[Rfam]
RNA sequence: GUGCUGUGAUGUACUUACUUAUCAACACAUCAUUCUGAAAACUUGUGUGGAGUAAUCCUGGCUGAGCACA
Numbered sequence: 001g002u003g004c005u006g007u008g009a010u011g012u013a014c015u016u017a018c019u020u021a022u023c024a025a026c027a028c029a030u031c032a033u034u035c036u037g038a039a040a041a042c043u044u045g046u047g048u049g050g051a052g053u054a055a056u057c058c059u060g061g062c063u064g065a066g067c068a069c070a
Base pairs, nucleotide, nucleotide: 001069002068003067004066